[Rfam]
RNA: Archaeal large subunit ribosomal RNA, nucleotides 2689 to 2937
Nucleotides: 249
Base pairs, nucleotide, nucleotide: 001158002157003156004155005154006153007152008151011144012143013142014141017047018046019045020044021043022042023041048101049100050099051098052097056095057094058093063088064087065086066085067084068081069080070079071078072077105139106138107137112132113131114130115129116128160244161243162242163241165179166178167177168176185237186236187235188233189232190231191230192229193227194226195225201220202219203218204217205216208213
Number, partner (000 for none) and nucleotide at each position: 001158c002157g003156u004155g005154g006153u007152c008151u009000g010000a011144g012143a013142g014141g015000a016000a017047a018046g019045u020044c021043c022042g023041g024000a025000c026000a027000g028000u029000a030000c031000g032000a033000a034000a035000g036000g037000a038000a039000c040000c041023c042022u043021g044020g045019a046018c047017u048101g049100g050099a051098g052097c053000c054000u055000c056095u057094g058093g059000u060000g061000u062000a063088u064087c065086u066085g067084u068081u069080a070079u071078c072077c073000g074000a075000g076000a077072g078071g079070g080069u081068a082000g083000u084067g085066c086065a087064g088063a089000g090000u091000a092000g093058c094057c095056a096000c097052g098051c099050u100049c101048c102000a103000c104000a105139g106138g107137u108000g109000u110000a111000a112132g113131a114130g115129c116128u117000g118000a119000a120000a121000g122000c123000a124000u125000c126000u127000a128116a129115g130114c131113u132112c133000g134000a135000a136000a137107g138106c139105u140000u141014c142013c143012u144011c145000a146000a147000a148000a149000a150000g151008a152007g153006a154005c155004c156003g157002c158001g159000u160244c161243c162242a163241c164000u165179c166178c167177u168176g169000u170000a171000g172000a173000a174000g175000a176168c177167g178166g179165g180000u181000u182000u183000g184000a185237u186236a187235g188233a189232g190231u191230g192229g193227c194226g195225g196000u197000g198000u199000a200000c201220g202219c203218g204217c205216c206000a207000a208213g209000g210000c211000a212000a213208c214000g215000a216205g217204g218203c219202g220201u221000u222000c223000a224000g225195c226194c227193g228000a229192c230191c231190a232189c233188u234000a235187c236186u237185a238000a239000a240000c241163g242162u243161g244160g245000g246000u247000u248000c249000c